[Rfam]
RNA sequence: AUUCACUCUUAGAAACCCCCCUGUUGCUUACCUUCUGGGGCACGAAAGAGUGGCAGAUCAUUCCUUAAGCCUUCCAAAACCGAACCCCUCGUCUCAGUGGCUUUUGGUUAUUUCAACUUAAGGACAUGU
Numbered sequence: 001a002u003u004c005a006c007u008c009u010u011a012g013a014a015a016c017c018c019c020c021c022u023g024u025u026g027c028u029u030a031c032c033u034u035c036u037g038g039g040g041c042a043c044g045a046a047a048g049a050g051u052g053g054c055a056g057a058u059c060a061u062u063c064c065u066u067a068a069g070c071c072u073u074c075c076a077a078a079a080c081c082g083a084a085c086c087c088c089u090c091g092u093c094u095c096a097g098u099g100g101c102u103u104u105u106g107g108u109u110a111u112u113u114c115a116a117c118u119u120a121a122g123g124a125c126a127u128g129u
Stems, first nucleotide, its partner, number of pairs: 003053004009045002012043001018040004023035001026032001057129002062124007078109007087100001090097001
RNA: Small nucleolar RNA SNORA14